[Rfam]
RNA sequence: AGACCAUGAUGUGGGAACCUUCGAAACAGGUCCUUGUACCAUUCCCAUCCAUCAUAUAGAGAUUCACUUCCUUCUGAACAAAGGUUAAAAUCUCGUUUCUGAGUUU
Numbered sequence: 001a002g003a004c005c006a007u008g009a010u011g012u013g014g015g016a017a018c019c020u021u022c023g024a025a026a027c028a029g030g031u032c033c034u035u036g037u038a039c040c041a042u043u044c045c046c047a048u049c050c051a052u053c054a055u056a057u058a059g060a061g062a063u064u065c066a067c068u069u070c071c072u073u074c075u076g077a078a079c080a081a082a083g084g085u086u087a088a089a090a091u092c093u094c095g096u097u098u099c100u101g102a103g104u105u106u
Base pairs, nucleotide, nucleotide: 001106003104004103005101006100058072
This 106-nucleotide RNA sequence from Turnera subulata belongs to the Rfam family "Plant small nucleolar RNA R71".
Gene Ontology terms of the family: RNA processing and nucleolus.
Taxonomically the source falls in Turnera (Eukaryota, Embryophyta, Spermatophyta, eudicotyledons).
Rfam classes the family as a C/D-box small nucleolar RNA.
The base pairs follow the family's consensus structure, which was predicted with PFOLD.